Eukaryotic large subunit ribosomal RNA: a 323-nucleotide part of an RNA from Gallus gallus. A reference for the family is Cannone et al. (2002), "The comparative RNA web (CRW) site: an online database of comparative sequence and structure information for ribosomal, intron, and other RNAs", BMC Bioinformatics.
[Rfam]
RNA sequence: GAGUCUAGCACGCGCGCGAGUCGGCGGCUCGCGCGAAAGCCCGCGGCGCAAUGAAGGUGAGGGCCGGCGCGCGCCGGCUGAGGUGGGAUCCCGGGGCGGCAGGCCGGAAGGCCCCGGGCGCACCACCGGCCCGUCUCGCCCGCCUCGCCGGGGAGGUGGAGCAUGAGCGCGCGUGCUAGGACCCGAAAGAUGGUGAACUAUGCCUGGGCAGGGCGAAGCCAGAGGAAACUCUGGUGGAGGUCCGUAGCGGUCCUGACGUGCAAAUCGGUCGUCCGACCCGGGUAUAGGGGCGAAAGACUAAUCGAACCAUCUAGUAGCUGGUU
Numbered sequence: 001g002a003g004u005c006u007a008g009c010a011c012g013c014g015c016g017c018g019a020g021u022c023g024g025c026g027g028c029u030c031g032c033g034c035g036a037a038a039g040c041c042c043g044c045g046g047c048g049c050a051a052u053g054a055a056g057g058u059g060a061g062g063g064c065c066g067g068c069g070c071g072c073g074c075c076g077g078c079u080g081a082g083g084u085g086g087g088a089u090c091c092c093g094g095g096g097c098g099g100c101a102g103g104c105c106g107g108a109a110g111g112c113c114c115c116g117g118g119c120g121c122a123c124c125a126c127c128g129g130c131c132c133g134u135c136u137c138g139c140c141c142g143c144c145u146c147g148c149c150g151g152g153g154a155g156g157u158g159g160a161g162c163a164u165g166a167g168c169g170c171g172c173g174u175g176c177u178a179g180g181a182c183c184c185g186a187a188a189g190a191u192g193g194u195g196a197a198c199u200a201u202g203c204c205u206g207g208g209c210a211g212g213g214c215g216a217a218g219c220c221a222g223a224g225g226a227a228a229c230u231c232u233g234g235u236g237g238a239g240g241u242c243c244g245u246a247g248c249g250g251u252c253c254u255g256a257c258g259u260g261c262a263a264a265u266c267g268g269u270c271g272u273c274c275g276a277c278c279c280g281g282g283u284a285u286a287g288g289g290g291c292g293a294a295a296g297a298c299u300a301a302u303c304g305a306a307c308c309a310u311c312u313a314g315u316a317g318c319u320g321g322u323u
Stems, first nucleotide, its partner, number of pairs: 005179013020047003026041004051058002082127005090118008129162002131159006140150001182321002185318001189311006198287011209275001211243004218235007247272004252268002255266002289299002

It scores 2538 bits against the family's covariance model.